[Rfam]
Rfam assigns this 54-nucleotide RNA sequence from Pelodiscus sinensis to the family "DUF3800-VI RNA". The family's consensus secondary structure is taken from published work. By type it is a cis-regulatory element.

RNA sequence: UGGCUGGGAGGGCGGGGCUUCCUCUGUCCACAGGGCAUUAAGCCCUCCUGGCCU
Number, nucleotide and partner (000 for none) at each position: 001u000002g053003g052004c051005u050006g049007g048008g047009a000010g029011g028012g027013c026014g025015g024016g000017g000018c000019u000020u000021c000022c000023u000024c015025u014026g013027u012028c011029c010030a000031c000032a046033g045034g044035g043036c042037a000038u000039u000040a000041a000042g036043c035044c034045c033046u032047c008048c007049u006050g005051g004052c003053c002054u000